[Rfam]
RNA sequence: GGUGCGGUCGGACAUCCGUGGGUAACUGCGGAUCCCUGUGGCAGGGGCGCGCCAGAUAUUAAUCAAUGCCCGUUGGGCAUGACUGGAGA
Numbered sequence: 001g002g003u004g005c006g007g008u009c010g011g012a013c014a015u016c017c018g019u020g021g022g023u024a025a026c027u028g029c030g031g032a033u034c035c036c037u038g039u040g041g042c043a044g045g046g047g048c049g050c051g052c053c054a055g056a057u058a059u060u061a062a063u064c065a066a067u068g069c070c071c072g073u074u075g076g077g078c079a080u081g082a083c084u085g086g087a088g089a
Base pairs, nucleotide, nucleotide: 001053002052003051004050005049006048014033015032016031017030018029019028020027066080067079068078069077070076
Rfam assigns this 89-nucleotide sequence from Dickeya zeae to the family "KDPG-aldolase RNA".
NCBI's taxonomy places the organism under Bacteria, Pseudomonadota, Gammaproteobacteria, Dickeya, Dickeya zeae.
Rfam's curators put it in the seed alignment.
By type it is a small RNA.